A member of the RNA family "Small nucleolar RNA snR60/Z15/Z230/Z193/J17" from Formicarius rufipectus, 86 nucleotides long.
The literature on the family includes a 1999 paper in Science by Lowe and Eddy, "A computational screen for methylation guide snoRNAs in yeast".
It scores 56 bits against the family's covariance model.
Rfam 15.1 lists 3,592 matches to the family in 1,855 species.
Rfam links the family to the GO terms RNA processing and nucleolus.
It is annotated as a C/D-box small nucleolar RNA.

[Rfam]
RNA sequence: AGGCUGCCUGUGAUGACAGCAUAGUUCAGCAGAUGAGCCGUGGUGAUCACGCUGUCACUGUCUUUCGCUCCUGUCUGAUGCAGCCU
Numbered sequence: 001a002g003g004c005u006g007c008c009u010g011u012g013a014u015g016a017c018a019g020c021a022u023a024g025u026u027c028a029g030c031a032g033a034u035g036a037g038c039c040g041u042g043g044u045g046a047u048c049a050c051g052c053u054g055u056c057a058c059u060g061u062c063u064u065u066c067g068c069u070c071c072u073g074u075c076u077g078a079u080g081c082a083g084c085c086u
Stems, first nucleotide, its partner, number of pairs: 004083004